[Rfam]
RNA sequence: CCUGACGACGCGUCGGGCCGGGAUGUGAUUCUCGGUGCGCCGGGAAUUGAACCACACA
Number, nucleotide and partner (000 for none) at each position: 001c017002c016003u015004g014005a013006c000007g000008a000009c000010g000011c000012g000013u005014c004015g003016g002017g001018c000019c000020g053021g052022g000023a000024u000025g000026u000027g048028a047029u046030u045031c044032u043033c042034g041035g000036u000037g000038c000039g000040c000041c034042g033043g032044g031045a030046a029047u028048u027049g000050a000051a000052c021053c020054a000055c000056a000057c000058a000
A member of the RNA family "eL15-Euryarchaeota ribosomal protein leader" from Halobacterium salinarum, 58 nucleotides long. Rfam's curators put it in the seed alignment. Taxonomically the source falls in Halobacterium salinarum NRC-34001 (Archaea, Halobacteriaceae, Halobacterium, Halobacterium salinarum). The family's RNA type in Rfam is cis-regulatory leader. On this family, see Eckert and Weinberg, BMC Microbiol 2020: "Discovery of 20 novel ribosomal leader candidates in bacteria and archaea".